A member of the RNA family "FMN riboswitch aptamer (RFN element)" from Gelria sp. Kuro-4, 157 nucleotides long.

RNA sequence: GAAGGCCUUCAGGGCAAGGUGAGGGGCCGGGCCCCCAAUUCCUGACCGGCGGUGAAGCCUCCAGCGCAGCCUGUGAGGAUUAGCCCGCGAGCCACCGAGGUGGUUGAUCUGGUCGAAACCAGAGCCGACGGUAUAGUCCGGAUGGAAGAAGGUAGUG
Numbered sequence: 001g002a003a004g005g006c007c008u009u010c011a012g013g014g015c016a017a018g019g020u021g022a023g024g025g026g027c028c029g030g031g032c033c034c035c036c037a038a039u040u041c042c043u044g045a046c047c048g049g050c051g052g053u054g055a056a057g058c059c060u061c062c063a064g065c066g067c068a069g070c071c072u073g074u075g076a077g078g079a080u081u082a083g084c085c086c087g088c089g090a091g092c093c094a095c096c097g098a099g100g101u102g103g104u105u106g107a108u109c110u111g112g113u114c115g116a117a118a119c120c121a122g123a124g125c126c127g128a129c130g131g132u133a134u135a136g137u138c139c140g141g142a143u144g145g146a147a148g149a150a151g152g153u154a155g156u157g
Stems, first nucleotide, its partner, number of pairs: 005153006017043003045137002047127002049088004083125002091104003108123005129140003

Background: It scores 84 bits against the family's covariance model.